The family of this 255-nucleotide sequence from Lederbergia citrea is "BsrG". Rfam's curators write: bsrE, bsrG and bsrH pair through intermolecular interactions with antisense sRNAs. They form type I toxin/antitoxin system that includes an mRNA encoding for a short, toxic peptide (bsrE, bsrG and bsrH) and an antitoxin that is comprised of an antisense RNA. bsrG encodes a 39-amino-acid toxin, and the 180 nucleotide antisense sRNA called SR4 acts as the antitoxin (they overlap by 123 nucleotides). SR4 interaction with the 3'UTR of bsrG RNA promotes bsrG degradation and inhibits its translation. BsrG interferes with cell envelope biosynthesis, causes membrane invaginations and delocalisation of the cell wall synthesis and initiates autolysis. bsrE RNA encodes 30 amino-acid toxin peptide. Its antitoxin gene, SR5 overlaps by 112 nucleotides at the 3' end of bsrE. SR5 also overlaps bsrG from nucleotide 163 to 52 (Rfam overlap check). The antitoxin SR5 promotes bsrE degradation but unlike SR4 it does not directly inhibits toxin mRNA translation. For this family Rfam cites "A multistress responsive type I toxin-antitoxin system: bsrE/SR5 from the B. subtilis chromosome" (Muller et al., RNA Biol, 2016).
[Rfam]
RNA sequence: AUCAAUAGAAUAGGUUUCUCAAGGGUGGUCAGCAUACCUCUAUAGAAAGGGGGAGUGCUUGUGUCGGUCUUUGAAGCGUUGAUUUUAGCGUGUACCUUUGCGGGCUUACUCGUUGCAAUGCUACAAACUGGCCAAAAAAAAUAACCCACCCUUGAGCCUCCAAGCAUAAGGGGUGAGUUGAUGUCCUUCUCAUAGCCGAUUACCCAAGGAGGGAACCUUCUAUUGUAUGGACCGCGUAGUAUUCCAGCGUAAGCG
Numbered sequence: 001a002u003c004a005a006u007a008g009a010a011u012a013g014g015u016u017u018c019u020c021a022a023g024g025g026u027g028g029u030c031a032g033c034a035u036a037c038c039u040c041u042a043u044a045g046a047a048a049g050g051g052g053g054a055g056u057g058c059u060u061g062u063g064u065c066g067g068u069c070u071u072u073g074a075a076g077c078g079u080u081g082a083u084u085u086u087a088g089c090g091u092g093u094a095c096c097u098u099u100g101c102g103g104g105c106u107u108a109c110u111c112g113u114u115g116c117a118a119u120g121c122u123a124c125a126a127a128c129u130g131g132c133c134a135a136a137a138a139a140a141a142u143a144a145c146c147c148a149c150c151c152u153u154g155a156g157c158c159u160c161c162a163a164g165c166a167u168a169a170g171g172g173g174u175g176a177g178u179u180g181a182u183g184u185c186c187u188u189c190u191c192a193u194a195g196c197c198g199a200u201u202a203c204c205c206a207a208g209g210a211g212g213g214a215a216c217c218u219u220c221u222a223u224u225g226u227a228u229g230g231a232c233c234g235c236g237u238a239g240u241a242u243u244c245c246a247g248c249g250u251a252a253g254c255g
Stems, first nucleotide, its partner, number of pairs: 003225003007221003011199001013197004018156008027146003035054001037052005063124002066122003076091003099117004166184001201215001203213002233255003237251002242246001

The family's consensus secondary structure was predicted with WAR. Rfam links the family to the GO terms toxin activity and autolysis. By type it is a small RNA. The family has 6 seed sequences and 614 matches in Rfam 15.1.